The family of this 145-nucleotide sequence from Nyssa sinensis is "small nucleolar RNA snoR134". The family has 5 seed sequences and 792 matches in Rfam 15.1. Lineage of the source: Eukaryota > Streptophyta > Streptophytina > Euphyllophyta > Nyssa. A search with the family's covariance model found it, with a score of 108 bits. The family's RNA type in Rfam is H/ACA-box small nucleolar RNA. For this family Rfam cites "Mining small RNA sequencing data: a new approach to identify small nucleolar RNAs in Arabidopsis" (Chen and Wu, Nucleic Acids Res, 2009).
RNA sequence: UUGCACGUUGCACCCCGGGCUUCUCAGAAUCAUUGGGUGACGAAGAAGCCCCAAUGCUCGUGCUAAAUCGCCGCCGUUCAGUGUUGCAGUUUAGCCCUGUACCUCUAUUCAACGGUUGAACUGUGUCAAAUCAACGGCCACAUCU
Dot-bracket structure: ..(((((..((.....(((((((((................)).)))))))....)).))))).........((((((...((.((((((...(((.................)))...)))))).))....)))))).......